[Rfam]
Rfam assigns this 164-nucleotide RNA from Enhydra lutris to the family "U1 spliceosomal RNA". The family's RNA type in Rfam is spliceosomal small nuclear RNA. A search with the family's covariance model found it, with a score of 118 bits.
RNA sequence: AUAUUUACCAGGCAGGGGAGAUACCAUGAUCAAGCAGGUCGUUUUCUCAGGAUGAGGCUUGUCAAUUGCACUGCAGACGUGCUGACCCCUGUGAUUUCCCCAAAUGUGGGAAACUCGACUCCAUGAUUUAUGGUAGUGGGGGACUGCGUUUGCCCUUUCCCUGG
Numbered sequence: 001a002u003a004u005u006u007a008c009c010a011g012g013c014a015g016g017g018g019a020g021a022u023a024c025c026a027u028g029a030u031c032a033a034g035c036a037g038g039u040c041g042u043u044u045u046c047u048c049a050g051g052a053u054g055a056g057g058c059u060u061g062u063c064a065a066u067u068g069c070a071c072u073g074c075a076g077a078c079g080u081g082c083u084g085a086c087c088c089c090u091g092u093g094a095u096u097u098c099c100c101c102a103a104a105u106g107u108g109g110g111a112a113a114c115u116c117g118a119c120u121c122c123a124u125g126a127u128u129u130a131u132g133g134u135a136g137u138g139g140g141g142g143a144c145u146g147c148g149u150u151u152g153c154c155c156u157u158u159c160c161c162u163g164g
Stems, first nucleotide, its partner, number of pairs: 012122001014120002016048006023042002026039002049090003054086001056083003060079004092117003095113003099109002137163005143158001146155001148153001